[Rfam]
Nucleotides: 072
Base pairs, nucleotide, nucleotide: 001071002070003069004068005067006066007065010024011023012022026042027041028040029039030038048064049063050062051061052060
Number, partner (000 for none) and nucleotide at each position: 001071g002070g003069c004068c005067c006066g007065u008000u009000g010024g011023c012022c013000c014000a015000a016000u017000g018000g019000c020000a021000a022012g023011g024010c025000g026042u027041g028040a029039g030038a031000c032000u033000u034000c035000g036000a037000a038030u039029c040028u041027u042026g043000a044000g045000a046000u047000u048064g049063c050062a051061g052060g053000u054000u055000c056000g057000a058000c059000c060052c061051c062050u063049g064048c065007a066006c067005g068004g069003g070002u071001c072000g